About this RNA: This 185-nucleotide RNA sequence belongs to the Rfam family "malK-I RNA". The sequence is in the family's curated seed alignment. By type it is a cis-regulatory element. The base pairs follow the family's consensus structure, which is taken from published work.
RNA sequence: CUGACUGCCUGUGCGGCUCUCCAAUCAAUCAGUCGUACAGAGUAUGUGUAAGGAGGAAAAAACCAGGCCCGGGCUCGGGCUGCGGCAGCGUUGGAGACCUGCCGCAACGCGGCGCAUCCCAUGCGCGGAUGGCCGUGAGGGCGUUCCUUGCGGAGGCAGAACGUCCGGAGCCGAAGAAAAUGGCG
Dot-bracket structure: ........((((((((((............))))))))))..........................[[[[.(((((]]]]((((((((.((.....))))))))))..(((((.(((...........))))))))..((((((((..(((....))))))))))).))))).............